The family of this 114-nucleotide RNA from Anabarilius grahami is "Potassium channel RNA editing signal". Lineage of the source: Eukaryota > Metazoa > Eumetazoa > Bilateria > Anabarilius. Rfam's curators write: This family represents a group of sequences related to the human potassium channel Kv1.1 hairpin element which directs the efficient modification of an adenosine to inosine by an adenosine deaminase acting on RNA (ADAR). A search with the family's covariance model found it, with a score of 81 bits. The family has 85 seed sequences and 14,095 matches in Rfam 15.1. On this family, see Bhalla et al., Nat Struct Mol Biol 2004: "Control of human potassium channel inactivation by editing of a small mRNA hairpin". The base pairs follow the family's consensus structure, which is taken from published work.
RNA sequence: GUGGGUUAUGGGGAUAUCUAUCCACAAACCCUCCUGGGCAAAAUAGUGGGUGGCCUCUGUUGUAUCGCCGGUGUCUUAGUAAUUGCUCUGCCCAUUCCUAUUAUUGUGAACAAC
Numbered sequence: 001g002u003g004g005g006u007u008a009u010g011g012g013g014a015u016a017u018c019u020a021u022c023c024a025c026a027a028a029c030c031c032u033c034c035u036g037g038g039c040a041a042a043a044u045a046g047u048g049g050g051u052g053g054c055c056u057c058u059g060u061u062g063u064a065u066c067g068c069c070g071g072u073g074u075c076u077u078a079g080u081a082a083u084u085g086c087u088c089u090g091c092c093c094a095u096u097c098c099u100a101u102u103a104u105u106g107u108g109a110a111c112a113a114c
Stems, first nucleotide, its partner, number of pairs: 001114002004111001007108005013102004020095002037077002040074001049063001